This 80-nucleotide sequence from Vibrio maritimus belongs to the Rfam family "RpsF leader".
Rfam classes the family as a cis-regulatory leader.
For this family Rfam cites "Bacterial RNA motif in the 5' UTR of rpsF interacts with an S6:S18 complex" (Fu et al., RNA, 2014).
From the family's description: Conserved and widely distributed to many bacterial species RNA structure.
[Rfam]
RNA sequence: GUCUUUUUUAUUAGUUCCUUGCUUCCUCUGGAUGACCGAGCCAAACGUGGAAGCUAAUAAUCCGUAAGGAGCAACCAAUG
Numbered sequence: 001g002u003c004u005u006u007u008u009u010a011u012u013a014g015u016u017c018c019u020u021g022c023u024u025c026c027u028c029u030g031g032a033u034g035a036c037c038g039a040g041c042c043a044a045a046c047g048u049g050g051a052a053g054c055u056a057a058u059a060a061u062c063c064g065u066a067a068g069g070a071g072c073a074a075c076c077a078a079u080g
Stems, first nucleotide, its partner, number of pairs: 014072007021054006029043003